[Rfam]
GlmZ RNA activator of glmS mRNA: a 219-nucleotide RNA from Serratia sp. DD3. Clan: Glm clan. A search with the family's covariance model found it, with a score of 177 bits. Pairs were carried over by alignment from the consensus structure, which is taken from published work. Taxonomically the source falls in Serratia (Bacteria, Gammaproteobacteria, Enterobacterales, Yersiniaceae). A reference for the family is Argaman et al. (2001), "Novel small RNA-encoding genes in the intergenic regions of Escherichia coli", Curr Biol. About the family: This RNA was discovered in E. coli during a large scale screen.
RNA sequence: GUAGAUGCUCAUUCCAUUUCUUAUGUUUGCCUUAGGCUUCAUAAACCCAGGAAUGAUGCAGAGCCGAUUUUAGGGUGCCUAUUGUCCACCAGAACGAUGAAAACGUUGCUUGCAACGACUCCAUCACACUCCGGGCAUAACGUUGAGUGAGGCACCGACUCAGUUGUCCUAGACCUGAUUGCUUCUUUUAGACACUUACCUGAUGGCAAGUGUCUUUUU
Numbered sequence: 001g002u003a004g005a006u007g008c009u010c011a012u013u014c015c016a017u018u019u020c021u022u023a024u025g026u027u028u029g030c031c032u033u034a035g036g037c038u039u040c041a042u043a044a045a046c047c048c049a050g051g052a053a054u055g056a057u058g059c060a061g062a063g064c065c066g067a068u069u070u071u072a073g074g075g076u077g078c079c080u081a082u083u084g085u086c087c088a089c090c091a092g093a094a095c096g097a098u099g100a101a102a103a104c105g106u107u108g109c110u111u112g113c114a115a116c117g118a119c120u121c122c123a124u125c126a127c128a129c130u131c132c133g134g135g136c137a138u139a140a141c142g143u144u145g146a147g148u149g150a151g152g153c154a155c156c157g158a159c160u161c162a163g164u165u166g167u168c169c170u171a172g173a174c175c176u177g178a179u180u181g182c183u184u185c186u187u188u189u190a191g192a193c194a195c196u197u198a199c200c201u202g203a204u205g206g207c208a209a210g211u212g213u214c215u216u217u218u219u
Stems, first nucleotide, its partner, number of pairs: 001064002006060003009056004015051001017050001019043001027036001074156007084136004096125004166174003191214007199206002
Dot-bracket structure: ((...(((((((..(.(.(.......(........)......)......)).)))).)))..)).........(((((((...((((........((((......................)))).......)))).............))))))).........(((...)))................(((((((.((....)).))))))).....